[Rfam]
RNA sequence: UAGGUUGGAGGAGCACUAGACUAUUUAUCUAGACUAGCCAAGCUGUGGCGAGCAAUGUUGCAUCUCCGAGGAGAGCAUGGGGCGUGCUGAUUUAAAAACAGAAAAUGCAAAGCUGGACUGAAAAUAUCCUUAGUCUUCCAAGCAAUCUGCUUAAAGGUUCCAAACUUACCUUAAUUUGGUGAGCAAAAGAAGCUUGCCCUAUUUUCUCUUUCUUCUUCUCCUUCUACAACCAGAACCAGCCAUUUCCCCAAACCGCCACCAUG
Numbered sequence: 001u002a003g004g005u006u007g008g009a010g011g012a013g014c015a016c017u018a019g020a021c022u023a024u025u026u027a028u029c030u031a032g033a034c035u036a037g038c039c040a041a042g043c044u045g046u047g048g049c050g051a052g053c054a055a056u057g058u059u060g061c062a063u064c065u066c067c068g069a070g071g072a073g074a075g076c077a078u079g080g081g082g083c084g085u086g087c088u089g090a091u092u093u094a095a096a097a098a099c100a101g102a103a104a105a106u107g108c109a110a111a112g113c114u115g116g117a118c119u120g121a122a123a124a125u126a127u128c129c130u131u132a133g134u135c136u137u138c139c140a141a142g143c144a145a146u147c148u149g150c151u152u153a154a155a156g157g158u159u160c161c162a163a164a165c166u167u168a169c170c171u172u173a174a175u176u177u178g179g180u181g182a183g184c185a186a187a188a189g190a191a192g193c194u195u196g197c198c199c200u201a202u203u204u205u206c207u208c209u210u211u212c213u214u215c216u217u218c219u220c221c222u223u224c225u226a227c228a229a230c231c232a233g234a235a236c237c238a239g240c241c242a243u244u245u246c247c248c249c250a251a252a253c254c255g256c257c258a259c260c261a262u263g
Base pairs, nucleotide, nucleotide: 047247048246050244051243068220069219070218071217072216073215074214075213077202078201079200080199081198082197083196084195086193087192088191091188092187093186099149100148101147102146106144107143108142114140115139116138117137120135121134165183166182167181168180169179170178